[Rfam]
RNA: mir-344 microRNA precursor family
Organism: Neotoma lepida
RNA sequence: UUGCCAGUCAGGCUUCUGGCUGGAAUUUGGCUCCCAACUGGUUCCAGGCUCUAGCCAGGACCUGACUACAAG
Numbered sequence: 001u002u003g004c005c006a007g008u009c010a011g012g013c014u015u016c017u018g019g020c021u022g023g024a025a026u027u028u029g030g031c032u033c034c035c036a037a038c039u040g041g042u043u044c045c046a047g048g049c050u051c052u053a054g055c056c057a058g059g060a061c062c063u064g065a066c067u068a069c070a071a072g
Stems, first nucleotide, its partner, number of pairs: 007066003011062002014059001017057008027041004